[Rfam]
RNA sequence: AGUUGCAAACUUGAGGCCACAGGAGAAGUGUUCAUGGCGCAGCCCCAUAAGGUUCCAACGUAUCUAUGAAUUCUGCU
Numbered sequence: 001a002g003u004u005g006c007a008a009a010c011u012u013g014a015g016g017c018c019a020c021a022g023g024a025g026a027a028g029u030g031u032u033c034a035u036g037g038c039g040c041a042g043c044c045c046c047a048u049a050a051g052g053u054u055c056c057a058a059c060g061u062a063u064c065u066a067u068g069a070a071u072u073c074u075g076c077u
Stems, first nucleotide, its partner, number of pairs: 013046001015044003021077002024074004028040003050065004055060001

This 77-nucleotide sequence from Crocodylus porosus belongs to the Rfam family "Mammalian CPEB3 ribozyme". Gene Ontology term of the family: RNA nuclease activity. It scores 44 bits against the family's covariance model. The family's consensus secondary structure is taken from published work.